[Rfam]
Shown here is a 61-nucleotide RNA, a member of the family "RAGATH-18 RNA". Rfam describes the family as follows. Actinobacteria, Firmicutes, Fusobacteria, Thermotogae (1 example).
RNA sequence: ACUGUGGACUGCACAAAAAAUAUGAGUAGCUCAGGCAAAAGUAUGCAGGAUGAAACAGUAA
Numbered sequence: 001a002c003u004g005u006g007g008a009c010u011g012c013a014c015a016a017a018a019a020a021u022a023u024g025a026g027u028a029g030c031u032c033a034g035g036c037a038a039a040a041g042u043a044u045g046c047a048g049g050a051u052g053a054a055a056c057a058g059u060a061a
Stems, first nucleotide, its partner, number of pairs: 001059005009048005021043003029036002